[Rfam]
RNA sequence: GUCCUUAUGCUAGGGUUAGAGCUUCUGACAGUGAGGAGAAAUCCGAGUCGAAGCAAUUGCUGAUUGCAAAAAACAAUCCUAACGUUGUAUUGCGUCGCAAGACCGGUACACAAUUUCUGGAAACCAUAUCUUGG
Numbered sequence: 001g002u003c004c005u006u007a008u009g010c011u012a013g014g015g016u017u018a019g020a021g022c023u024u025c026u027g028a029c030a031g032u033g034a035g036g037a038g039a040a041a042u043c044c045g046a047g048u049c050g051a052a053g054c055a056a057u058u059g060c061u062g063a064u065u066g067c068a069a070a071a072a073a074c075a076a077u078c079c080u081a082a083c084g085u086u087g088u089a090u091u092g093c094g095u096c097g098c099a100a101g102a103c104c105g106g107u108a109c110a111c112a113a114u115u116u117c118u119g120g121a122a123a124c125c126a127u128a129u130c131u132u133g134g
Base pairs, nucleotide, nucleotide: 021054022053023052024051025050027049028048029047035044036043037042084111085110087109088108089107090106091105092104094103095102096101124134125133126132
About this RNA:
Shown here is a 134-nucleotide sequence from Kwoniella dejecticola, a member of the family "U4 spliceosomal RNA". For this family Rfam cites "Structure of a pre-catalytic spliceosome" (Plaschka et al., Nature, 2017). U4 small nuclear RNA (U4 snRNA) is a component of the major U2-dependent spliceosome. Lineage of the source: Eukaryota > Agaricomycotina > Tremellales > Cryptococcaceae > Kwoniella dejecticola. Clan: U4 clan.